This 328-nucleotide RNA from Adineta ricciae belongs to the Rfam family "RNase MRP". Lineage of the source: Eukaryota > Gnathifera > Eurotatoria > Bdelloidea > Adineta. Rfam links the family to the GO terms ribonuclease MRP complex, ribonuclease MRP activity and rRNA processing.
RNA sequence: AUGUAUCUUACACGUUUGCUGUUCGAGUUACAUACGAGUGUCGUUUCCGAUCACUCUCAACGUCGAUCGAAUUUUGUUUUCAGAAUUUGAUCGAUACUCGAGGGAAAGUCCCCGAACCCAAGGAUAGCAACUAUCCGAUCUUUUCUCAAAGAUCUAUCAUGUUUAUAUGCUAAAUACAAUAGAUAUGAUUAUUUGACCAAGAUGAGAAUCUUCUCAGAGUUAAUAAUUUUAUCUGUAUUUAGUGAAUGUGAUAUCGUUGCAAAUAGAGUUAUGCAAACAGUCAAUGGCGACAUUGACUUACACGAGGGGUGCUUAUGAGUAAGGUACA
Numbered sequence: 001a002u003g004u005a006u007c008u009u010a011c012a013c014g015u016u017u018g019c020u021g022u023u024c025g026a027g028u029u030a031c032a033u034a035c036g037a038g039u040g041u042c043g044u045u046u047c048c049g050a051u052c053a054c055u056c057u058c059a060a061c062g063u064c065g066a067u068c069g070a071a072u073u074u075u076g077u078u079u080u081c082a083g084a085a086u087u088u089g090a091u092c093g094a095u096a097c098u099c100g101a102g103g104g105a106a107a108g109u110c111c112c113c114g115a116a117c118c119c120a121a122g123g124a125u126a127g128c129a130a131c132u133a134u135c136c137g138a139u140c141u142u143u144u145c146u147c148a149a150a151g152a153u154c155u156a157u158c159a160u161g162u163u164u165a166u167a168u169g170c171u172a173a174a175u176a177c178a179a180u181a182g183a184u185a186u187g188a189u190u191a192u193u194u195g196a197c198c199a200a201g202a203u204g205a206g207a208a209u210c211u212u213c214u215c216a217g218a219g220u221u222a223a224u225a226a227u228u229u230u231a232u233c234u235g236u237a238u239u240u241a242g243u244g245a246a247u248g249u250g251a252u253a254u255c256g257u258u259g260c261a262a263a264u265a266g267a268g269u270u271a272u273g274c275a276a277a278c279a280g281u282c283a284a285u286g287g288c289g290a291c292a293u294u295g296a297c298u299u300a301c302a303c304g305a306g307g308g309g310u311g312c313u314u315a316u317g318a319g320u321a322a323g324g325u326a327c328a
Stems, first nucleotide, its partner, number of pairs: 002328010014278006022102007106314003110311001111309003123135004173239003182234001194222004204215004280297006